[Rfam]
RNA sequence: GGAAUAUAAGAACCUGUCUCUUAACUUUUAAUUAAAAAAAUUAAGAAUCGGCUCCUAAAACUCUUAUUUAAGAAUCGUUUCUUAGCUUUUUUAGUUAAAAGUUAAGAAAUAAGUUCUUAUAUUCU
Numbered sequence: 001g002g003a004a005u006a007u008a009a010g011a012a013c014c015u016g017u018c019u020c021u022u023a024a025c026u027u028u029u030a031a032u033u034a035a036a037a038a039a040a041u042u043a044a045g046a047a048u049c050g051g052c053u054c055c056u057a058a059a060a061c062u063c064u065u066a067u068u069u070a071a072g073a074a075u076c077g078u079u080u081c082u083u084a085g086c087u088u089u090u091u092u093a094g095u096u097a098a099a100a101g102u103u104a105a106g107a108a109a110u111a112a113g114u115u116c117u118u119a120u121a122u123u124c125u
Base pairs, nucleotide, nucleotide: 001125002124003123004122005121006120007119008118009117010116011115012114013113015111016110017109019107020106021105022104023103024102025101026100027099028098029097030096031095032094033093034092035091036090037089038088039087041085042084043083044082045081046080047079
Dot-bracket structure: (((((((((((((.(((.(((((((((((((((((((((.(((((((...............................))))))).))))))))))))))))))))).))).)))))))))))))